MIR390 microRNA precursor family: a 105-nucleotide RNA from Solanum lycopersicum. NCBI's taxonomy places the organism under Eukaryota, Embryophyta, Mesangiospermae, eudicotyledons, Solanum subgen. Lycopersicon. Rfam links the family to the GO terms RISC complex and miRNA-mediated post-transcriptional gene silencing. A reference for the family is Gustafson et al. (2005), "ASRP: the Arabidopsis Small RNA Project Database", Nucleic Acids Res.
RNA sequence: AUGGAGAAUCUGUAAAGCUCAGGAGGGAUAGCGCCAUGGAUGACUCAAUUCGAUUUUUGUACACAUCUUUAGCGCUAUCCAUCCUGAGUUUCACGGCUUUUUCAU
Numbered sequence: 001a002u003g004g005a006g007a008a009u010c011u012g013u014a015a016a017g018c019u020c021a022g023g024a025g026g027g028a029u030a031g032c033g034c035c036a037u038g039g040a041u042g043a044c045u046c047a048a049u050u051c052g053a054u055u056u057u058u059g060u061a062c063a064c065a066u067c068u069u070u071a072g073c074g075c076u077a078u079c080c081a082u083c084c085u086g087a088g089u090u091u092c093a094c095g096g097c098u099u100u101u102u103c104a105u
Stems, first nucleotide, its partner, number of pairs: 010096001016090009026080009